[Rfam]
RNA sequence: CCUGCCGAAGUUUCCCUCAGGAUAGCAGAAACUCACAUCAGUUUUAUGAGGUAAAGCGAAUGAUUAGAGGCCUUGGGGAAGUAACUUCCUUAACCUAUUCUCAAACUUUAAAUGUGUAAGAAGCCCUUGUUACUUUAGUGAACGAGGGCAUGCGAAUGAGAGUUUCUAGUGGGCCAUUUUUGGUAAGCAGAACUGGCGAUGCGGGAUGAACCGAACGUUGGGUUAAGGUGCCAAAGUAUACGCUCAUCAGAUACCAGAAAAGGUGUUAUUUAGUCUAGACAGUGGGACGGUGGCCAUGGAAGUCGGAAACCGCUAAGGAGUGUGUAACAACUCACCCACCGAAUUAAGUAGCCCUGAAAAUGGAUGGCGCUCAAGCGUAUCACCGAUACCCAACCGUCAGUGUUUAGCGAAGCGCUGACGAGUAGGCAGGCGUGGGGGUCCGUAUGGAAGCCUUGGCAGUGAUGCUGGGUGGAACGGCCUCUAGUGCAGAU
Numbered sequence: 001c002c003u004g005c006c007g008a009a010g011u012u013u014c015c016c017u018c019a020g021g022a023u024a025g026c027a028g029a030a031a032c033u034c035a036c037a038u039c040a041g042u043u044u045u046a047u048g049a050g051g052u053a054a055a056g057c058g059a060a061u062g063a064u065u066a067g068a069g070g071c072c073u074u075g076g077g078g079a080a081g082u083a084a085c086u087u088c089c090u091u092a093a094c095c096u097a098u099u100c101u102c103a104a105a106c107u108u109u110a111a112a113u114g115u116g117u118a119a120g121a122a123g124c125c126c127u128u129g130u131u132a133c134u135u136u137a138g139u140g141a142a143c144g145a146g147g148g149c150a151u152g153c154g155a156a157u158g159a160g161a162g163u164u165u166c167u168a169g170u171g172g173g174c175c176a177u178u179u180u181u182g183g184u185a186a187g188c189a190g191a192a193c194u195g196g197c198g199a200u201g202c203g204g205g206a207u208g209a210a211c212c213g214a215a216c217g218u219u220g221g222g223u224u225a226a227g228g229u230g231c232c233a234a235a236g237u238a239u240a241c242g243c244u245c246a247u248c249a250g251a252u253a254c255c256a257g258a259a260a261a262g263g264u265g266u267u268a269u270u271u272a273g274u275c276u277a278g279a280c281a282g283u284g285g286g287a288c289g290g291u292g293g294c295c296a297u298g299g300a301a302g303u304c305g306g307a308a309a310c311c312g313c314u315a316a317g318g319a320g321u322g323u324g325u326a327a328c329a330a331c332u333c334a335c336c337c338a339c340c341g342a343a344u345u346a347a348g349u350a351g352c353c354c355u356g357a358a359a360a361u362g363g364a365u366g367g368c369g370c371u372c373a374a375g376c377g378u379a380u381c382a383c384c385g386a387u388a389c390c391c392a393a394c395c396g397u398c399a400g401u402g403u404u405u406a407g408c409g410a411a412g413c414g415c416u417g418a419c420g421a422g423u424a425g426g427c428a429g430g431c432g433u434g435g436g437g438g439u440c441c442g443u444a445u446g447g448a449a450g451c452c453u454u455g456g457c458a459g460u461g462a463u464g465c466u467g468g469g470u471g472g473a474a475c476g477g478c479c480u481c482u483a484g485u486g487c488a489g490a491u
Base pairs, nucleotide, nucleotide: 001430002429003428004427005426006425011024013022014021015020027167028166029165030164031163032162033161042121043120044119045118046117047116048115054109055107056106061103062102063101066098068096069095070094073093074092075091076090077089078088080086123149124148125147126146127145128144129143130142131141173197174196175195176194178192179191180190181189182188202213203212204211217394218393219392220391221390223388227384228383229382236381238380241377242376243375261355262354263353265352266351267350268349269348270347271346272345273344274343282339283338284337285336286335288312289311290310294306295305313317318333322331323330395420396419397418398417399416400415401414402413403412431486433483434482435481436480437479438478439477440476442475443474450470451469456465457464458463
RNA: Eukaryotic large subunit ribosomal RNA, nucleotides 975 to 1465